[Rfam]
RNA sequence: CAGAAAUUUGCUCUUUAGUAUUUGUCCAGUUGGUUUCCUUUAAAGGGAAACCUCU
Numbered sequence: 001c002a003g004a005a006a007u008u009u010g011c012u013c014u015u016u017a018g019u020a021u022u023u024g025u026c027c028a029g030u031u032g033g034u035u036u037c038c039u040u041u042a043a044a045g046g047g048a049a050a051c052c053u054c055u
Stems, first nucleotide, its partner, number of pairs: 032052008

Description: A member of the RNA family "U7 small nuclear RNA" from Carassius auratus, 55 nucleotides long. The source organism's lineage runs through Eukaryota, Metazoa, Craniata, Neopterygii and Carassius. On this family, see Marz et al., Genomics Proteomics Bioinformatics 2007: "U7 snRNAs: a computational survey". A search with the family's covariance model found it, with a score of 42 bits.